[Rfam]
RNA sequence: UCCUCGUUCAAAGAAUCGCAUUCAAAGCUCACACACAGAGGUUCCACCUCUAACUCGCUUUGGGAGAAAGUCCCCGGACACCCUGCACUUUGCAAAAGGAUGCCAGGCACUGCGGAAACGCGCCGCCAUAGAAGCAAUUCGAUAGCGGCCACGCCCACUCCCAACCACACACUGCACCGCCCGACACAUCGUGGAAACAAUGGGGCGACUGUGGUGUUGUGGAAGGGGAAGAACUUCGGUUCCAAUUGGGUUGCCUUUCGUCAAGUUCGAUAGUCAUGCGAUUGCUCGUCUUCGGACGGGUAACUCAAUGGGGCUCAUUCUUGAGGCGAGG
Numbered sequence: 001u002c003c004u005c006g007u008u009c010a011a012a013g014a015a016u017c018g019c020a021u022u023c024a025a026a027g028c029u030c031a032c033a034c035a036c037a038g039a040g041g042u043u044c045c046a047c048c049u050c051u052a053a054c055u056c057g058c059u060u061u062g063g064g065a066g067a068a069a070g071u072c073c074c075c076g077g078a079c080a081c082c083c084u085g086c087a088c089u090u091u092g093c094a095a096a097a098g099g100a101u102g103c104c105a106g107g108c109a110c111u112g113c114g115g116a117a118a119c120g121c122g123c124c125g126c127c128a129u130a131g132a133a134g135c136a137a138u139u140c141g142a143u144a145g146c147g148g149c150c151a152c153g154c155c156c157a158c159u160c161c162c163a164a165c166c167a168c169a170c171a172c173u174g175c176a177c178c179g180c181c182c183g184a185c186a187c188a189u190c191g192u193g194g195a196a197a198c199a200a201u202g203g204g205g206c207g208a209c210u211g212u213g214g215u216g217u218u219g220u221g222g223a224a225g226g227g228g229a230a231g232a233a234c235u236u237c238g239g240u241u242c243c244a245a246u247u248g249g250g251u252u253g254c255c256u257u258u259c260g261u262c263a264a265g266u267u268c269g270a271u272a273g274u275c276a277u278g279c280g281a282u283u284g285c286u287c288g289u290c291u292u293c294g295g296a297c298g299g300g301u302a303a304c305u306c307a308a309u310g311g312g313g314c315u316c317a318u319u320c321u322u323g324a325g326g327c328g329a330g331g
Stems, first nucleotide, its partner, number of pairs: 002331006008324004014283006022064001023062006038050005069315002072313004187202003191198002204255003208251003212248003218244002221241001228237003285300006
Shown here is a 331-nucleotide RNA from Penicillium salamii, a member of the family "RNase MRP". A search with the family's covariance model found it, with a score of 118 bits. The family has 66 seed sequences and 3,510 matches in Rfam 15.1. Rfam classes the family as a ribozyme. The organism belongs to Penicillium, within Eukaryota. The literature on the family includes a 1993 paper in FASEB J by Schmitt et al., "Secondary structure of RNase MRP RNA as predicted by phylogenetic comparison".